[Rfam]
RNA sequence: UCCUCGCUCAAAGGAUCGCAUUCAAAGCUCACACACAAAAAAGGAAGAUGCUCUCUUCUUUUUUUACACAAAAACUCGCUUUGGGGAAAGUCCCGGACAACCUGCACUUUGAUUUUCGGAUCGGAGUUAGUCCAAGCCAGGCAUUGCGGAAACGCGCCGCCAUAGAAGCAAUUCGAUAGCGGCUUAUUGCCCUAUCCCAUCCCGACUGCGUCCAUCGUCCGACAGUUCUCUUCUUCGUGAGGGGGUACUGGUUAUAAUGGGGUGGUGGGCUCGUGUCGGAGGGGGGGAAGGGGGAUUUCGAUCUCUCUUGUAUCGGGUUGCCUUUCGUCGUGGUUCGAUAGUCAUGCGAUUGCCCCUUGUUCUUCACUUCGAUGUGACGGGGGUAACUCAAUGGGGCUCAUUCUUGAGGCGAGG
Numbered sequence: 001u002c003c004u005c006g007c008u009c010a011a012a013g014g015a016u017c018g019c020a021u022u023c024a025a026a027g028c029u030c031a032c033a034c035a036c037a038a039a040a041a042a043g044g045a046a047g048a049u050g051c052u053c054u055c056u057u058c059u060u061u062u063u064u065u066a067c068a069c070a071a072a073a074a075c076u077c078g079c080u081u082u083g084g085g086g087a088a089a090g091u092c093c094c095g096g097a098c099a100a101c102c103u104g105c106a107c108u109u110u111g112a113u114u115u116u117c118g119g120a121u122c123g124g125a126g127u128u129a130g131u132c133c134a135a136g137c138c139a140g141g142c143a144u145u146g147c148g149g150a151a152a153c154g155c156g157c158c159g160c161c162a163u164a165g166a167a168g169c170a171a172u173u174c175g176a177u178a179g180c181g182g183c184u185u186a187u188u189g190c191c192c193u194a195u196c197c198c199a200u201c202c203c204g205a206c207u208g209c210g211u212c213c214a215u216c217g218u219c220c221g222a223c224a225g226u227u228c229u230c231u232u233c234u235u236c237g238u239g240a241g242g243g244g245g246u247a248c249u250g251g252u253u254a255u256a257a258u259g260g261g262g263u264g265g266u267g268g269g270c271u272c273g274u275g276u277c278g279g280a281g282g283g284g285g286g287g288a289a290g291g292g293g294g295a296u297u298u299c300g301a302u303c304u305c306u307c308u309u310g311u312a313u314c315g316g317g318u319u320g321c322c323u324u325u326c327g328u329c330g331u332g333g334u335u336c337g338a339u340a341g342u343c344a345u346g347c348g349a350u351u352g353c354c355c356c357u358u359g360u361u362c363u364u365c366a367c368u369u370c371g372a373u374g375u376g377a378c379g380g381g382g383g384u385a386a387c388u389c390a391a392u393g394g395g396g397c398u399c400a401u402u403c404u405u406g407a408g409g410c411g412a413g414g
Base pairs, nucleotide, nucleotide: 002414003413004412005411006410007409008407009406010405011404014351015350016349017348018347019346022084023083024082025081026080027079028078038064039063040062041061042060043059044058045057046056047055048054089398090397092396093395094393248261249260251258252257264322265321266320269318270317271316272315273314277310278309279308280306281305282304283303290299291298292297353383354382355381356380357379
Record summary: Shown here is a 414-nucleotide RNA sequence from Penicillium cosmopolitanum, a member of the family "RNase MRP". About the family: RNase MRP is an enzymatically active ribonucleoprotein with two distinct roles in eukaryotes. Its Rfam clan is "RNaseP clan". Gene Ontology terms of the family: rRNA processing, ribonuclease MRP complex and ribonuclease MRP activity. NCBI's taxonomy places the organism under Eukaryota, Fungi, Dikarya, Aspergillaceae, Penicillium.